[Rfam]
RNA sequence: CUUAGGAGCCAAUGAUGUUCUUAUUCAAAAUGUCUGAACCUGUCUGAAACAUCUCAUUGAUGUAACUUCUGUGUGCUGCUGAGGCUUCUCUGCCA
Numbered sequence: 001c002u003u004a005g006g007a008g009c010c011a012a013u014g015a016u017g018u019u020c021u022u023a024u025u026c027a028a029a030a031u032g033u034c035u036g037a038a039c040c041u042g043u044c045u046g047a048a049a050c051a052u053c054u055c056a057u058u059g060a061u062g063u064a065a066c067u068u069c070u071g072u073g074u075g076c077u078g079c080u081g082a083g084g085c086u087u088c089u090c091u092g093c094c095a
Stems, first nucleotide, its partner, number of pairs: 004089007

The record is a 95-nucleotide sequence from Marmota monax, which matches "Small nucleolar RNA SNORD91 family" in Rfam.
Gene Ontology terms of the family: RNA processing and nucleolus.
A reference for the family is Huttenhofer et al. (2001), "RNomics: an experimental approach that identifies 201 candidates for novel, small, non-messenger RNAs in mouse", EMBO J.
The source organism's lineage runs through Eukaryota, Bilateria, Craniata, Amniota and Marmota.
Rfam classes the family as a C/D-box small nucleolar RNA.